[Rfam]
Shown here is an 83-nucleotide sequence from Diatraea saccharalis, a member of the family "mir-2763 microRNA precursor family". The base pairs follow the family's consensus structure, which was predicted with RNAalifold. A search with the family's covariance model found it, with a score of 79 bits.

RNA sequence: UGCAACGUUCUCCAAAGUAGUGAACAUAAUUUAUCGUAAGUCAUAGCUAUGGAUAUUAUGCUCCUUACUUUGGAUAUGUUGUA
Numbered sequence: 001u002g003c004a005a006c007g008u009u010c011u012c013c014a015a016a017g018u019a020g021u022g023a024a025c026a027u028a029a030u031u032u033a034u035c036g037u038a039a040g041u042c043a044u045a046g047c048u049a050u051g052g053a054u055a056u057u058a059u060g061c062u063c064c065u066u067a068c069u070u071u072g073g074a075u076a077u078g079u080u081g082u083a
Stems, first nucleotide, its partner, number of pairs: 002082005008076001011074010022063002025060005032055004